[Rfam]
RNA sequence: UUUUUUGCUAUUGCAUCAUCUUCAAGAUUCAGAAAUCAUAUUUCUUUGAUGGGUUCUCCUCCGAGCCCAUCUUCUUUGGUUUGAGAAUCUUGAUGAUGCUGCAGCGGCAAUCAA
Numbered sequence: 001u002u003u004u005u006u007g008c009u010a011u012u013g014c015a016u017c018a019u020c021u022u023c024a025a026g027a028u029u030c031a032g033a034a035a036u037c038a039u040a041u042u043u044c045u046u047u048g049a050u051g052g053g054u055u056c057u058c059c060u061c062c063g064a065g066c067c068c069a070u071c072u073u074c075u076u077u078g079g080u081u082u083g084a085g086a087a088u089c090u091u092g093a094u095g096a097u098g099c100u101g102c103a104g105c106g107g108c109a110a111u112c113a114a
Stems, first nucleotide, its partner, number of pairs: 011104005017098004022093009033082001
Overview: mir-172 microRNA precursor family: a 114-nucleotide RNA sequence from Raphanus sativus. Rfam links the family to the GO terms RISC complex and miRNA-mediated post-transcriptional gene silencing. A reference for the family is Park et al. (2002), "CARPEL FACTORY, a Dicer homolog, and HEN1, a novel protein, act in microRNA metabolism in Arabidopsis thaliana", Curr Biol.